[Rfam]
RNA sequence: CAAGCAUAGCAGUGAUGUUGUGUUGAGUAAGCCAGAAGUCAGCCGAGGUCAUAGUAGUUUGAAUAAUCAGAUGAAGGAC
Numbered sequence: 001c002a003a004g005c006a007u008a009g010c011a012g013u014g015a016u017g018u019u020g021u022g023u024u025g026a027g028u029a030a031g032c033c034a035g036a037a038g039u040c041a042g043c044c045g046a047g048g049u050c051a052u053a054g055u056a057g058u059u060u061g062a063a064u065a066a067u068c069a070g071a072u073g074a075a076g077g078a079c
Stems, first nucleotide, its partner, number of pairs: 001025002004023008039046002048079003057072006
Rfam assigns this 79-nucleotide RNA sequence from Limosilactobacillus frumenti to the family "Group II catalytic intron D1-D4-1". About the family: Group II introns are found in rRNA, tRNA and mRNA of organelles in fungi, plants and protists, and also in mRNA in bacteria. The match comes from Rfam's covariance-model search (66 bits). Lineage of the source: Bacteria > Bacillati > Lactobacillales > Limosilactobacillus > Limosilactobacillus frumenti.